[Rfam]
RNA sequence: GCCGCGCCUAGGUCGGCCAACCGAAAACGGGGACACCCUGCCCCGCUGGCGCGGCACCUAUCACCAGGG
Number, nucleotide and partner (000 for none) at each position: 001g055002c054003c053004g052005c051006g050007c049008c048009u000010a000011g022012g021013u020014c000015g000016g000017c000018c000019a000020a013021c012022c011023g000024a000025a000026a000027a000028c045029g044030g043031g042032g041033a000034c000035a000036c069037c068038c067039u066040g065041c032042c031043c030044c029045g028046c000047u000048g008049g007050c006051g005052c004053g003054g002055c001056a000057c000058c000059u000060a000061u000062c000063a000064c000065c040066a039067g038068g037069g036
RNA: int-alpA RNA
Organism: Thauera propionica